[Rfam]
This 384-nucleotide RNA from Paraliobacillus sp. PM-2 belongs to the Rfam family "Bacterial RNase P class B". By type it is a ribozyme. Clan: RNaseP clan. Taxonomically the source falls in Paraliobacillus (Bacteria, Bacillati, Bacilli, Caryophanales). Rfam's curators write: Ribonuclease P (RNase P) is a ubiquitous endoribonuclease, found in archaea, bacteria and eukarya as well as chloroplasts and mitochondria. Its best characterised activity is the generation of mature 5'-ends of tRNAs by cleaving the 5'-leader elements of precursor-tRNAs.
RNA sequence: AUGUUUGCUGUAAUCGCUACGUAUGAUUCAUAUGUAGAGGAAAGUCCAUGCUCACACAAGCUGAGAUGCUUGUAGUGUUCGUGCUUGAUGAAAUCAUAAAUCAAGGUAACCUGUAAGGGUUAACGGCAGUGUAAGCACCUACGUCUUUGGAUAUGGUGUGAUACGCUUGAAAGUGCCACAGUGACGUAGUCAGAUUGGAAACAAUUUGAGUGGAACGCGGUAAACCCCACGAGUGAGCAACCCAAAUUUAGGUAGGGGCAUCUUGGAUUAGGGAAUUGAACCGAAACAAGGACAAGCAAUUAGCUUGUAGAUAGAUGAUUACAACUUACGUACAAGGCUGACCACCGUUAGUAGUGCAACAGUAACAGAACAUGGCUUACCAAA
Numbered sequence: 001a002u003g004u005u006u007g008c009u010g011u012a013a014u015c016g017c018u019a020c021g022u023a024u025g026a027u028u029c030a031u032a033u034g035u036a037g038a039g040g041a042a043a044g045u046c047c048a049u050g051c052u053c054a055c056a057c058a059a060g061c062u063g064a065g066a067u068g069c070u071u072g073u074a075g076u077g078u079u080c081g082u083g084c085u086u087g088a089u090g091a092a093a094u095c096a097u098a099a100a101u102c103a104a105g106g107u108a109a110c111c112u113g114u115a116a117g118g119g120u121u122a123a124c125g126g127c128a129g130u131g132u133a134a135g136c137a138c139c140u141a142c143g144u145c146u147u148u149g150g151a152u153a154u155g156g157u158g159u160g161a162u163a164c165g166c167u168u169g170a171a172a173g174u175g176c177c178a179c180a181g182u183g184a185c186g187u188a189g190u191c192a193g194a195u196u197g198g199a200a201a202c203a204a205u206u207u208g209a210g211u212g213g214a215a216c217g218c219g220g221u222a223a224a225c226c227c228c229a230c231g232a233g234u235g236a237g238c239a240a241c242c243c244a245a246a247u248u249u250a251g252g253u254a255g256g257g258g259c260a261u262c263u264u265g266g267a268u269u270a271g272g273g274a275a276u277u278g279a280a281c282c283g284a285a286a287c288a289a290g291g292a293c294a295a296g297c298a299a300u301u302a303g304c305u306u307g308u309a310g311a312u313a314g315a316u317g318a319u320u321a322c323a324a325c326u327u328a329c330g331u332a333c334a335a336g337g338c339u340g341a342c343c344a345c346c347g348u349u350a351g352u353a354g355u356g357c358a359a360c361a362g363u364a365a366c367a368g369a370a371c372a373u374g375g376c377u378u379a380c381c382a383a384a
Base pairs, nucleotide, nucleotide: 004384005383006382007380009323010322011321012320013319014318015317017037018036019035020034021033022032042378043377044376046375047374048373049372050371051237052236053235054234055233056073057072058071059070060069061068079232080231081230082229083228084105085104086103087102088101089100106124107122108121109120110119111118112117125227126226128167129166130165131164136158137157138156139155143152144151145150173225174224175221176220177219190209191208192207193206194205195204196203197202241257242256243255261291262290263289264288265287292308293307294306295305296304297303325362326361330357331356332355333354
Dot-bracket structure: ...((((.(((((((.((((((.........))))))....[[[.[[[[[(((((((((((......)))))).....(((((((((((..........))))))(((((((....)))))).)((.((((....((((...(((....)))..)))).....)))).....(((((............((((((((....)))))))).........)))..))))))))))))))...(((...........)))...(((((.....................)))))((((((.....))))))........))))))).((...((((....................))))...))........]]]]]]]].).)))